[Rfam]
RNA: Hepatitis C virus stem-loop SL8001 RNA
RNA sequence: CAUUCCCGCAAGGCCAUUAACCACAUCAGCUCCGUGUGGAAGGACUUGCUGGACGACA
Numbered sequence: 001c002a003u004u005c006c007c008g009c010a011a012g013g014c015c016a017u018u019a020a021c022c023a024c025a026u027c028a029g030c031u032c033c034g035u036g037u038g039g040a041a042g043g044a045c046u047u048g049c050u051g052g053a054c055g056a057c058a
Base pairs, nucleotide, nucleotide: 004053005052006051008049009048010047011046012045014043015042021039022038023037024036025035026034